[Rfam]
RNA sequence: GAAUCUAUGUGUAACUGGCGUACACGGAUUACCGUGAGGGAGCACAUAUUGAUUGGAAAGUAGCCGUUCGCCUGGGCAGAGGUA
Numbered sequence: 001g002a003a004u005c006u007a008u009g010u011g012u013a014a015c016u017g018g019c020g021u022a023c024a025c026g027g028a029u030u031a032c033c034g035u036g037a038g039g040g041a042g043c044a045c046a047u048a049u050u051g052a053u054u055g056g057a058a059a060g061u062a063g064c065c066g067u068u069c070g071c072c073u074g075g076g077c078a079g080a081g082g083u084a
Base pairs, nucleotide, nucleotide: 006048007047008046009045010044011043012042015039016038017072018071019070020069024035025034026033027032061079063077064076065075
RNA: ZMP/ZTP riboswitch aptamer (pfl RNA motif)
Organism: Salipaludibacillus neizhouensis